[Rfam]
RNA sequence: GUAACAAAACGUAAUAUAAAUCACAGUUCCGCCCCGUUUCAGUCAACGGCACGCCCCACAAAUCCUUACGAUCCCUAUCGUUGCCUUAUGGCCCGGUUCUCGUUGAGAGGUUUCGGAAUCUAAGCCCCCCAGCCCCCCGGGGCUUCUCUUGAGGACCGGGCCAAUGUUUUCAGUGGCACUGCAAAGGGCCGGCACUUGCCGGUCCUUUG
Numbered sequence: 001g002u003a004a005c006a007a008a009a010c011g012u013a014a015u016a017u018a019a020a021u022c023a024c025a026g027u028u029c030c031g032c033c034c035c036g037u038u039u040c041a042g043u044c045a046a047c048g049g050c051a052c053g054c055c056c057c058a059c060a061a062a063u064c065c066u067u068a069c070g071a072u073c074c075c076u077a078u079c080g081u082u083g084c085c086u087u088a089u090g091g092c093c094c095g096g097u098u099c100u101c102g103u104u105g106a107g108a109g110g111u112u113u114c115g116g117a118a119u120c121u122a123a124g125c126c127c128c129c130c131a132g133c134c135c136c137c138c139g140g141g142g143c144u145u146c147u148c149u150u151g152a153g154g155a156c157c158g159g160g161c162c163a164a165u166g167u168u169u170u171c172a173g174u175g176g177c178a179c180u181g182c183a184a185a186g187g188g189c190c191g192g193c194a195c196u197u198g199c200c201g202g203u204c205c206u207u208u209g
Base pairs, nucleotide, nucleotide: 034176035175036052037051039049040048083171090162091161092160093159094158095157096156097155098154099153100152108145109144110143111142112141113140114139115138116137124133125132186205187204188203189202190201191200192199193198
Shown here is a 209-nucleotide RNA from Methyloceanibacter methanicus, a member of the family "Bradyrhizobiaceae sRNA BjrC174". A search with the family's covariance model found it, with a score of 57 bits. Rfam classes the family as a small RNA. NCBI's taxonomy places the organism under Bacteria, Pseudomonadati, Alphaproteobacteria, Hyphomicrobiales, Methyloceanibacter.